RNA sequence: AGAUAUGCUUCUCCCAGAAAACGGGAGUCUCCGAUGAGAGCAGCCGGACGCUUCUUGCAUGGCGAAGAUUGUGCGUAACCUUCGUUUCAUGGCUGGCUCCUACGCAGUUAGAACCGCACCCUACAAAUCACUGUACGGAGGACACCCUUUUCUUAUGAAUAGC
Numbered sequence: 001a002g003a004u005a006u007g008c009u010u011c012u013c014c015c016a017g018a019a020a021a022c023g024g025g026a027g028u029c030u031c032c033g034a035u036g037a038g039a040g041c042a043g044c045c046g047g048a049c050g051c052u053u054c055u056u057g058c059a060u061g062g063c064g065a066a067g068a069u070u071g072u073g074c075g076u077a078a079c080c081u082u083c084g085u086u087u088c089a090u091g092g093c094u095g096g097c098u099c100c101u102a103c104g105c106a107g108u109u110a111g112a113a114c115c116g117c118a119c120c121c122u123a124c125a126a127a128u129c130a131c132u133g134u135a136c137g138g139a140g141g142a143c144a145c146c147c148u149u150u151u152c153u154u155a156u157g158a159a160u161a162g163c
Stems, first nucleotide, its partner, number of pairs: 001012003027143001028141006035135001036100001038099003041095005050058002061086007104134005111122001
Dot-bracket structure: (((......)))..............(((((((.((.((((((((....((.....))..(((((((............)))))))....))))).))))...(((((..(..........).......)))))))))))).)....................
Rfam assigns this 163-nucleotide RNA to the family "RT-2 RNA". The sequence is in the family's curated seed alignment.